RNA sequence: UGUGGAGGGAAGCUCAGUGCUGAGGCUACAGACAGAGUGCUGGGGGUCACUCAGUGAGUGUGACUCAGGGAAGGUCUGAGAUUAGAGCCCCUUGCUGCUCUCACAGGGCAUCACUUGGAUGAAGUGAGUGGGUACUCAGAAAGCUUGGCUCUGAUUGGCCAGUGAGUGCAAAAGAUGCAGUGAGUGCUCCUGGGUUGAGCUCCUGUAGAUGCAAAGGCAUCAGGCUUGGCACUGCCCACAGCUGGCACAUUCAAGCUCAAUGGCUGAGAGGGAACUGCCCCAACCCAAUUCAGACUACUCUCCCUCCACA
Numbered sequence: 001u002g003u004g005g006a007g008g009g010a011a012g013c014u015c016a017g018u019g020c021u022g023a024g025g026c027u028a029c030a031g032a033c034a035g036a037g038u039g040c041u042g043g044g045g046g047u048c049a050c051u052c053a054g055u056g057a058g059u060g061u062g063a064c065u066c067a068g069g070g071a072a073g074g075u076c077u078g079a080g081a082u083u084a085g086a087g088c089c090c091c092u093u094g095c096u097g098c099u100c101u102c103a104c105a106g107g108g109c110a111u112c113a114c115u116u117g118g119a120u121g122a123a124g125u126g127a128g129u130g131g132g133u134a135c136u137c138a139g140a141a142a143g144c145u146u147g148g149c150u151c152u153g154a155u156u157g158g159c160c161a162g163u164g165a166g167u168g169c170a171a172a173a174g175a176u177g178c179a180g181u182g183a184g185u186g187c188u189c190c191u192g193g194g195u196u197g198a199g200c201u202c203c204u205g206u207a208g209a210u211g212c213a214a215a216g217g218c219a220u221c222a223g224g225c226u227u228g229g230c231a232c233u234g235c236c237c238a239c240a241g242c243u244g245g246c247a248c249a250u251u252c253a254a255g256c257u258c259a260a261u262g263g264c265u266g267a268g269a270g271g272g273a274a275c276u277g278c279c280c281c282a283a284c285c286c287a288a289u290u291c292a293g294a295c296u297a298c299u300c301u302c303c304c305u306c307c308a309c310a
Stems, first nucleotide, its partner, number of pairs: 001310004008303003013268006021067004035052005040046001076293005086243003096110005111127006128239007148225003270280003
RNA: Nuclear RNase P
Organism: Xenopus laevis